[Rfam]
RNA sequence: GGAGCAGACCCGCCGAGUCGUGGCAACGAGCCGGGGACCCACCGCACGUCUGGGGUGAAUCCGCAGGUCGACGGCCUGUGGUAGGGCAACCUUCGCGCCCGAAUCCGUCAGCUAACCCGGUAGGCGGAGGCGUAAGGAGAC
Numbered sequence: 001g002g003a004g005c006a007g008a009c010c011c012g013c014c015g016a017g018u019c020g021u022g023g024c025a026a027c028g029a030g031c032c033g034g035g036g037a038c039c040c041a042c043c044g045c046a047c048g049u050c051u052g053g054g055g056u057g058a059a060u061c062c063g064c065a066g067g068u069c070g071a072c073g074g075c076c077u078g079u080g081g082u083a084g085g086g087c088a089a090c091c092u093u094c095g096c097g098c099c100c101g102a103a104u105c106c107g108u109c110a111g112c113u114a115a116c117c118c119g120g121u122a123g124g125c126g127g128a129g130g131c132g133u134a135a136g137g138a139g140a141c
Base pairs, nucleotide, nucleotide: 011126012125013124014123018029019028020027030121031120032119033118034117035116040052041051053106054105055104061081062080063079064078065077066076084100085099086098087097
Background:
A member of the RNA family "c-di-AMP riboswitch aptamer (ydaO/yuaA leader)" from Planosporangium mesophilum, 141 nucleotides long. From the family's description: This family represents a conserved RNA structure found upstream of the ydaO and yuaA genes in Bacillus subtilis and related genes in other bacteria. Taxonomically the source falls in Planosporangium (Bacteria, Actinomycetota, Actinomycetes, Micromonosporaceae). It scores 90 bits against the family's covariance model.